Annotation:
This 107-nucleotide RNA sequence from Limnohabitans sp. 2KL-17 belongs to the Rfam family "Glycine riboswitch aptamer".
RNA sequence: GCCACACACUCUGAAGAGCAACCAGGGUUCGUCACCCCGGUUCACCGCAGGAGCAAACUGAACAGCACGUUCGGUGAAUCUCUCAGGUUUCAAACAGAGGGGGUCAU
Numbered sequence: 001g002c003c004a005c006a007c008a009c010u011c012u013g014a015a016g017a018g019c020a021a022c023c024a025g026g027g028u029u030c031g032u033c034a035c036c037c038c039g040g041u042u043c044a045c046c047g048c049a050g051g052a053g054c055a056a057a058c059u060g061a062a063c064a065g066c067a068c069g070u071u072c073g074g075u076g077a078a079u080c081u082c083u084c085a086g087g088u089u090u091c092a093a094a095c096a097g098a099g100g101g102g103g104u105c106a107u
Stems, first nucleotide, its partner, number of pairs: 007101001009099005020042004044088003047084001051082003057075007